[Rfam]
RNA sequence: GAAAAAUGAAGAUAUUCUGACCACUUCCUAUUUUUACAGUGAAGACCUCAGAUCCAACUCUGAUUUCACUCGUUUC
Number, nucleotide and partner (000 for none) at each position: 001g067002a066003a065004a064005a000006a000007u000008g000009a000010a000011g000012a000013u000014a000015u000016u000017c000018u000019g000020a000021c000022c000023a000024c000025u000026u000027c000028c000029u000030a000031u000032u000033u000034u000035u000036a000037c000038a000039g000040u000041g000042a000043a000044g000045a000046c000047c000048u000049c000050a000051g000052a000053u000054c000055c000056a000057a000058c000059u000060c000061u000062g000063a000064u004065u003066u002067c001068a000069c000070u000071c000072g000073u000074u000075u000076c000
Shown here is a 76-nucleotide RNA from Trogon melanurus, a member of the family "Small nucleolar RNA SNORD19". Its family is annotated with nucleolus and RNA processing in the Gene Ontology. For this family Rfam cites "RNomics: an experimental approach that identifies 201 candidates for novel, small, non-messenger RNAs in mouse" (Huttenhofer et al., EMBO J, 2001). It scores 38 bits against the family's covariance model. It is annotated as a C/D-box small nucleolar RNA. Clan: SNORD19 clan.